A member of the RNA family "Bacterial small subunit ribosomal RNA" from Reinekea blandensis, 354 nucleotides of a longer RNA. Rfam 15.1 lists 42,628 matches to the family in 10,626 species. The base pairs follow the family's consensus structure, which is taken from published work. Clan: SSU clan. Taxonomically the source falls in Reinekea blandensis (Bacteria, Pseudomonadota, Saccharospirillaceae, Reinekea).

[Rfam]
RNA sequence: GGCGUAAAGCGCGCGUAGGUGGUUUGUUAAGUUGGAUGUGAAAGCCCCGGGCUCAACCUGGGAAUUGCAUCCAAAACUGGCAGACUUGAGUACGGCAGAGGCAAGUGGAAUUUCCAGUGUAGCGGUGAAAUGCGUAGAGAUUGGAAAGAACACCAGUGGCGAAGGCGACUUGCUGGGCUGAUACUGACACUGAGGUGCGAAAGCGUGGGGAGCAAACAGGAUUAGAUACCCUGGUAGUCCACGCCGUAAACGCUGUCUAUUAGCCGUUGGGCCUGUUAUGGGCUUGGUGGCGAAGCUAACGCGAUAAAUAGACCGCCUGGGGAGUACGGCCGCAAGGUUAAAACUCAAAUGAAU
Numbered sequence: 001g002g003c004g005u006a007a008a009g010c011g012c013g014c015g016u017a018g019g020u021g022g023u024u025u026g027u028u029a030a031g032u033u034g035g036a037u038g039u040g041a042a043a044g045c046c047c048c049g050g051g052c053u054c055a056a057c058c059u060g061g062g063a064a065u066u067g068c069a070u071c072c073a074a075a076a077c078u079g080g081c082a083g084a085c086u087u088g089a090g091u092a093c094g095g096c097a098g099a100g101g102c103a104a105g106u107g108g109a110a111u112u113u114c115c116a117g118u119g120u121a122g123c124g125g126u127g128a129a130a131u132g133c134g135u136a137g138a139g140a141u142u143g144g145a146a147a148g149a150a151c152a153c154c155a156g157u158g159g160c161g162a163a164g165g166c167g168a169c170u171u172g173c174u175g176g177g178c179u180g181a182u183a184c185u186g187a188c189a190c191u192g193a194g195g196u197g198c199g200a201a202a203g204c205g206u207g208g209g210g211a212g213c214a215a216a217c218a219g220g221a222u223u224a225g226a227u228a229c230c231c232u233g234g235u236a237g238u239c240c241a242c243g244c245c246g247u248a249a250a251c252g253c254u255g256u257c258u259a260u261u262a263g264c265c266g267u268u269g270g271g272c273c274u275g276u277u278a279u280g281g282g283c284u285u286g287g288u289g290g291c292g293a294a295g296c297u298a299a300c301g302c303g304a305u306a307a308a309u310a311g312a313c314c315g316c317c318u319g320g321g322g323a324g325u326a327c328g329g330c331c332g333c334a335a336g337g338u339u340a341a342a343a344c345u346c347a348a349a350u351g352a353a354u
Base pairs, nucleotide, nucleotide: 001317002316003315009314011198012197013196014195016192018191019190020189022085023084024083025082026081027080028079030078031077032074033073034072035071036070037069038068039067040066046062047061048060049059050058051057089185090184091183093180094179095178096177100174101173102172103171104170105169106168107151111147112146113145114144115143116142117141118140122133123132124131159166160165203244204243205242206241207240208239212238213237217233218232219231220230255313256312257311258310259309260308263291264290265289266288267287268286269285270284271283272282273281274280295302296301319346320345321344328339329338330337331336